[Rfam]
RNA sequence: AUGGGAACGAGGAUCCUUUCCCCAAAUGAUCGACAAUGAUUAUACUGUCCUUAUCAGAGGAUUCCAAGCCAGAAAUCUGAUCCAU
Number, nucleotide and partner (000 for none) at each position: 001a085002u084003g083004g082005g081006a000007a000008c000009g000010a000011g000012g000013a000014u000015c000016c000017u000018u000019u000020c000021c000022c000023c000024a000025a000026a000027u000028g000029a000030u000031c000032g000033a000034c000035a000036a000037u000038g000039a000040u000041u000042a000043u000044a000045c000046u000047g000048u000049c000050c000051u000052u000053a000054u000055c000056a000057g000058a000059g000060g000061a000062u000063u000064c000065c000066a000067a000068g000069c000070c000071a000072g000073a000074a000075a000076u000077c000078u000079g000080a000081u005082c004083c003084a002085u001
RNA: Small nucleolar RNA Z103